[Rfam]
This 53-nucleotide sequence from Ixodes scapularis belongs to the Rfam family "Guanidine-II riboswitch aptamer (mini-ykkC)".
Gene Ontology term of the family: regulation of gene expression.
A search with the family's covariance model found it, with a score of 35 bits.
RNA sequence: CCUCAAGGACGACCUUAAGGACGACCUCAAGGACGACCUCGAGGACGACCUCA
Numbered sequence: 001c002c003u004c005a006a007g008g009a010c011g012a013c014c015u016u017a018a019g020g021a022c023g024a025c026c027u028c029a030a031g032g033a034c035g036a037c038c039u040c041g042a043g044g045a046c047g048a049c050c051u052c053a
Base pairs, nucleotide, nucleotide: 001020002019003018005016006015007014008013041052042051043050044049